[Rfam]
RNA sequence: GUAGAUGCUCAUUCCAUCUCUUAUGUUCGCCUUCUGGCCUCAUAAACCCAGGAAUGACGCAGAGCCGUUUUAUGGUGCUUAUCGUCCACCGAGAGAUGUCGCUUCGGCCUCAUCAAACACCAUGGGCAUAACGUUGAGUGAAGCACCCAUUAGUUGUCAAAGACCUGUUUUAACGCCUGUCAGUGUAUGCUGACAGGCGUUUUUUU
Numbered sequence: 001g002u003a004g005a006u007g008c009u010c011a012u013u014c015c016a017u018c019u020c021u022u023a024u025g026u027u028c029g030c031c032u033u034c035u036g037g038c039c040u041c042a043u044a045a046a047c048c049c050a051g052g053a054a055u056g057a058c059g060c061a062g063a064g065c066c067g068u069u070u071u072a073u074g075g076u077g078c079u080u081a082u083c084g085u086c087c088a089c090c091g092a093g094a095g096a097u098g099u100c101g102c103u104u105c106g107g108c109c110u111c112a113u114c115a116a117a118c119a120c121c122a123u124g125g126g127c128a129u130a131a132c133g134u135u136g137a138g139u140g141a142a143g144c145a146c147c148c149a150u151u152a153g154u155u156g157u158c159a160a161a162g163a164c165c166u167g168u169u170u171u172a173a174c175g176c177c178u179g180u181c182a183g184u185g186u187a188u189g190c191u192g193a194c195a196g197g198c199g200u201u202u203u204u205u206u
Stems, first nucleotide, its partner, number of pairs: 001065002006061003009057004015052001017051001019044001027037001029035001074147007084127005095114004156164003172201011
The record is a 206-nucleotide sequence from Kosakonia cowanii, which matches "GlmZ RNA activator of glmS mRNA" in Rfam. The family is grouped with related families in Rfam's "Glm clan". This RNA was discovered in E. coli during a large scale screen. On this family, see Righetti et al., Proc Natl Acad Sci U S A 2016: "Temperature-responsive in vitro RNA structurome of Yersinia pseudotuberculosis". The base pairs follow the family's consensus structure, which is taken from published work.